RNA sequence: AAAGCACUUUCACAGGUCCUCCCCUAGAUUGUGGGGAUACGAUUUGGUAGCUGGUGCUGAAAAAAAUAUCCUUGACUGCAUUCUUGCCCUGGAUCUGUGCCAAUGGCAGCUGUCAGCUUGAUGAGGCACAA
Numbered sequence: 001a002a003a004g005c006a007c008u009u010u011c012a013c014a015g016g017u018c019c020u021c022c023c024c025u026a027g028a029u030u031g032u033g034g035g036g037a038u039a040c041g042a043u044u045u046g047g048u049a050g051c052u053g054g055u056g057c058u059g060a061a062a063a064a065a066a067u068a069u070c071c072u073u074g075a076c077u078g079c080a081u082u083c084u085u086g087c088c089c090u091g092g093a094u095c096u097g098u099g100c101c102a103a104u105g106g107c108a109g110c111u112g113u114c115a116g117c118u119u120g121a122u123g124a125g126g127c128a129c130a131a
Stems, first nucleotide, its partner, number of pairs: 003058006013046003017042002020039001022036004069125001071123001072121004077115002080113002084109005090102003